[Rfam]
Overview
Shown here is an 83-nucleotide RNA sequence from Aliikangiella marina, a member of the family "c-di-GMP-I riboswitch aptamer". The source organism's lineage runs through Bacteria, Pseudomonadati, Oceanospirillales, Pleioneaceae and Aliikangiella.
RNA sequence: GUCUGAAAAAGGCAAAACCACUGAAAGGUGGUGACGCAAAGUUACCGGUCUAACGGGCAACCUAUGACAGCGGGACUACCAGG
Numbered sequence: 001g002u003c004u005g006a007a008a009a010a011g012g013c014a015a016a017a018c019c020a021c022u023g024a025a026a027g028g029u030g031g032u033g034a035c036g037c038a039a040a041g042u043u044a045c046c047g048g049u050c051u052a053a054c055g056g057g058c059a060a061c062c063u064a065u066g067a068c069a070g071c072g073g074g075a076c077u078a079c080c081a082g083g
Stems, first nucleotide, its partner, number of pairs: 012037002017032006040077004045073003048068003055062002
Source information:
The base pairs follow the family's consensus structure, which is taken from published work.